[Rfam]
The record is an 80-nucleotide RNA sequence from Bacillus sp. FJAT-50079, which matches "ZMP/ZTP riboswitch aptamer (pfl RNA motif)" in Rfam.
RNA sequence: UUUGGUAUGUAUAACUGCCGAAAUGUGGAUUACCACGAGGGAAUACAAACUUAUAAUAGCCGUACGCCAGGGCAAAGCAU
Numbered sequence: 001u002u003u004g005g006u007a008u009g010u011a012u013a014a015c016u017g018c019c020g021a022a023a024u025g026u027g028g029a030u031u032a033c034c035a036c037g038a039g040g041g042a043a044u045a046c047a048a049a050c051u052u053a054u055a056a057u058a059g060c061c062g063u064a065c066g067c068c069a070g071g072g073c074a075a076a077g078c079a080u
Stems, first nucleotide, its partner, number of pairs: 004051003008047005015040002017068001019066002025036004057075001059073003

The base pairs follow the family's consensus structure, which is taken from published work.
Its family is annotated with one-carbon metabolic process and regulation of purine nucleotide biosynthetic process in the Gene Ontology.
Taxonomically the source falls in Bacillus (Bacteria, Bacillati, Bacillota, Bacillaceae).
The match comes from Rfam's covariance-model search (54 bits).